[Rfam]
RNA: serC leader
Organism: Methylobacterium haplocladii
RNA sequence: CGGCGGGACACCUCCCCCCAACGGGAGGCGCCCAUCUGUAAGGAUGGUUCAU
Numbered sequence: 001c002g003g004c005g006g007g008a009c010a011c012c013u014c015c016c017c018c019c020a021a022c023g024g025g026a027g028g029c030g031c032c033c034a035u036c037u038g039u040a041a042g043g044a045u046g047g048u049u050c051a052u
Base pairs, nucleotide, nucleotide: 011028012027013026014025015024016023032047033046034045035044036043037042